[Rfam]
Nucleotides: 103
Stems, first nucleotide, its partner, number of pairs: 004095001006093006022041006042059006069080004
Number, partner (000 for none) and nucleotide at each position: 001000a002000g003000c004095u005000u006093u007092a008091g009090g010089a011088a012000u013000a014000a015000a016000a017000u018000c019000a020000c021000a022041u023040u024039a025038u026037g027036g028000u029000c030000g031000g032000u033000a034000g035000u036027c037026c038025a039024u040023a041022a042059g043058u044057a045056u046055g047054a048000a049000g050000a051000g052000a053000u054047u055046c056045a057044u058043a059042u060000u061000a062000g063000u064000a065000u066000c067000c068000u069080g070079c071078c072077c073000c074000u075000c076000c077072g078071g079070g080069u081000u082000g083000u084000c085000c086000u087000u088011u089010u090009c091008c092007u093006g094000u095004a096000u097000u098000a099000a100000u101000u102000a103000a
The record is a 103-nucleotide RNA sequence from Isobaculum melis, which matches "azaaromatic riboswitch aptamer (yjdF RNA)" in Rfam. The organism belongs to Isobaculum, within Bacteria.